[Rfam]
The record is an 80-nucleotide sequence from Macaca mulatta, which matches "mir-595 microRNA precursor family" in Rfam. The family's consensus secondary structure was predicted with RNAalifold. The organism belongs to Macaca, within Eukaryota. Rfam's curators put it in the seed alignment.
RNA sequence: CCUGCAUGCGUUUAACACCAGCACACUCAGUAUAGUCUUGUAAGGAGCAGGCUGAAGUGUGCUGUGGUGUGUCUGGAGGA
Numbered sequence: 001c002c003u004g005c006a007u008g009c010g011u012u013u014a015a016c017a018c019c020a021g022c023a024c025a026c027u028c029a030g031u032a033u034a035g036u037c038u039u040g041u042a043a044g045g046a047g048c049a050g051g052c053u054g055a056a057g058u059g060u061g062c063u064g065u066g067g068u069g070u071g072u073c074u075g076g077a078g079g080a
Base pairs, nucleotide, nucleotide: 001079002078003077005075006074008072009071015070016069017068018067019066020065021062022061023060024059025058026057027056028054029053030052031051033049036046037045038044039043